[Rfam]
RNA sequence: AUACGAAAAAGGCAAACUUAUCGAAAGGUAAGGACGCAAAGCUUCAGACCUAAGGCAAUUGCUAAGGUAGCUGGGUUACCGAA
Numbered sequence: 001a002u003a004c005g006a007a008a009a010a011g012g013c014a015a016a017c018u019u020a021u022c023g024a025a026a027g028g029u030a031a032g033g034a035c036g037c038a039a040a041g042c043u044u045c046a047g048a049c050c051u052a053a054g055g056c057a058a059u060u061g062c063u064a065a066g067g068u069a070g071c072u073g074g075g076u077u078a079c080c081g082a083a
Stems, first nucleotide, its partner, number of pairs: 012037002017032006040077004045073003048068003055062002